[Rfam]
RNA sequence: UGUAGUCGAAUUUUUGAAGAAAGAAAAGACAGAAAUACCCAAUAUCUUGCUAGAACAAGAUAUUGGGUAUUUCUGUCUU
Numbered sequence: 001u002g003u004a005g006u007c008g009a010a011u012u013u014u015u016g017a018a019g020a021a022a023g024a025a026a027a028g029a030c031a032g033a034a035a036u037a038c039c040c041a042a043u044a045u046c047u048u049g050c051u052a053g054a055a056c057a058a059g060a061u062a063u064u065g066g067g068u069a070u071u072u073c074u075g076u077c078u079u
Stems, first nucleotide, its partner, number of pairs: 026079013040065003044061005
Plastid-psbA-1 3UTR RNA: a 79-nucleotide RNA sequence from Triticum aestivum. Taxonomically the source falls in Triticum (Eukaryota, Tracheophyta, Magnoliopsida, Pooideae). A search with the family's covariance model found it, with a score of 56 bits. Rfam's curators write: Plastid psbA-1 is a non-coding RNA (ncRNA) present in plastids. It was identified in inverted repeat sequences in the 3 prime untranslate region (3UTR) of photosystem II quinone-binding protein (psbA). The literature on the family includes a 2023 paper in Plant Commun by Richter et al., "Retrograde signaling in plants: A critical review focusing on the GUN pathway and beyond". Clan: Plastid-psbA 3UTR RNA clan.